A member of the RNA family "Small nucleolar RNA SNORA74" from Dipodomys ordii, 196 nucleotides long.
Its family is annotated with RNA processing and nucleolus in the Gene Ontology.
RNA sequence: UCCAGCAGUUGUCAGCUAUCCAGACUACUGUGGUGCCUGUGAUUGUGUUACACUGUUGGAAGAACAAACGCUGUUUUGAGGUUUGCUCCAUACACUGUUUUGGUGUUGGGGCAAAGUGCCUUUGGACAGUGUUUUGCACCUCUGAGAGUGGAAUGACUUCUCCUAUGGAGUUGAUCCUAGUCUGGGUGCAAACAGA
Numbered sequence: 001u002c003c004a005g006c007a008g009u010u011g012u013c014a015g016c017u018a019u020c021c022a023g024a025c026u027a028c029u030g031u032g033g034u035g036c037c038u039g040u041g042a043u044u045g046u047g048u049u050a051c052a053c054u055g056u057u058g059g060a061a062g063a064a065c066a067a068a069c070g071c072u073g074u075u076u077u078g079a080g081g082u083u084u085g086c087u088c089c090a091u092a093c094a095c096u097g098u099u100u101u102g103g104u105g106u107u108g109g110g111g112c113a114a115a116g117u118g119c120c121u122u123u124g125g126a127c128a129g130u131g132u133u134u135u136g137c138a139c140c141u142c143u144g145a146g147a148g149u150g151g152a153a154u155g156a157c158u159u160c161u162c163c164u165a166u167g168g169a170g171u172u173g174a175u176c177c178u179a180g181u182c183u184g185g186g187u188g189c190a191a192a193c194a195g196a
Stems, first nucleotide, its partner, number of pairs: 001060009011051002015046002018043003021039003025035001068132009078122004082115006089108002093105004134191008150177003154173007
Annotation: About the family: U19 belongs to the H/ACA class of snoRNAs. snoRNAs bind a number of proteins (including dyskerin, Gar1p and Nop10p in the case of the H/ACA class) to form snoRNP complexes. This class are thought to guide the sites of modification of uridines to pseudouridines by forming direct base pairing interactions with substrate RNAs. Targets may include ribosomal and spliceosomal RNAs but the exact functions of many snoRNAs, including U19, are not confirmed. Co-precipitation of U19 snoRNA with RNase MRP RNA suggests that U19 may be involved in pre-rRNA processing. The organism belongs to Dipodomys, within Eukaryota.